Small nucleolar RNA SNORA74: a 201-nucleotide RNA from Acanthisitta chloris. Lineage of the source: Eukaryota > Dinosauria > Saurischia > Australaves > Acanthisitta. About the family: U19 belongs to the H/ACA class of snoRNAs. snoRNAs bind a number of proteins (including dyskerin, Gar1p and Nop10p in the case of the H/ACA class) to form snoRNP complexes. This class are thought to guide the sites of modification of uridines to pseudouridines by forming direct base pairing interactions with substrate RNAs. Its family is annotated with RNA processing and nucleolus in the Gene Ontology. Clan: SNORA74 clan. By type it is an H/ACA-box small nucleolar RNA. A reference for the family is Kiss et al. (1996), "Characterization of the intron-encoded U19 RNA, a new mammalian small nucleolar RNA that is not associated with fibrillarin", Mol Cell Biol.

RNA sequence: CCCAGUGGUAGUCAGCUGCCCAUGGCUGCUCAGUGCCUGUGCUAGUGUUAUGCUGCUGGGAGAGAAAGGUGCUGCCGAGUCUCCCUGGCACCAUCAGUGCUGUUCUGGUGCUCGGUGGUGCUGGGGUUUGGCAGUGCUCUGCAUGUGAGAGUGGAGUAACUCCUGCCUGUGGAGUUACAGCCUAGAUUGGAUGCAGACAAC
Numbered sequence: 001c002c003c004a005g006u007g008g009u010a011g012u013c014a015g016c017u018g019c020c021c022a023u024g025g026c027u028g029c030u031c032a033g034u035g036c037c038u039g040u041g042c043u044a045g046u047g048u049u050a051u052g053c054u055g056c057u058g059g060g061a062g063a064g065a066a067a068g069g070u071g072c073u074g075c076c077g078a079g080u081c082u083c084c085c086u087g088g089c090a091c092c093a094u095c096a097g098u099g100c101u102g103u104u105c106u107g108g109u110g111c112u113c114g115g116u117g118g119u120g121c122u123g124g125g126g127u128u129u130g131g132c133a134g135u136g137c138u139c140u141g142c143a144u145g146u147g148a149g150a151g152u153g154g155a156g157u158a159a160c161u162c163c164u165g166c167c168u169g170u171g172g173a174g175u176u177a178c179a180g181c182c183u184a185g186a187u188u189g190g191a192u193g194c195a196g197a198c199a200a201c
Stems, first nucleotide, its partner, number of pairs: 001060009011051002015046004020041001021039002024037003069137009083126004088121006095114001097111005139196006146189001153182002157177007